[Rfam]
RNA sequence: UUUUAGCCCCGGUGGGAGCGGCAUCCUUUGCCUUUUUGUUUUCAAAAAAGGCAAAGAUAUAGCGGACGACGGGACUUUGU
Dot-bracket structure: ........(((.((...((...(((...((((((((.........))))))))..)))...))...)).)))........
Numbered sequence: 001u002u003u004u005a006g007c008c009c010c011g012g013u014g015g016g017a018g019c020g021g022c023a024u025c026c027u028u029u030g031c032c033u034u035u036u037u038g039u040u041u042u043c044a045a046a047a048a049a050g051g052c053a054a055a056g057a058u059a060u061a062g063c064g065g066a067c068g069a070c071g072g073g074a075c076u077u078u079g080u
Stems, first nucleotide, its partner, number of pairs: 009072003013068002018063002023058003029053008
Flavo-1 RNA: an 80-nucleotide sequence from Flavobacterium succinicans. The family's RNA type in Rfam is small RNA. The family's consensus secondary structure is taken from published work. It scores 64 bits against the family's covariance model. Rfam 15.1 lists 7,497 matches to the family in 411 species.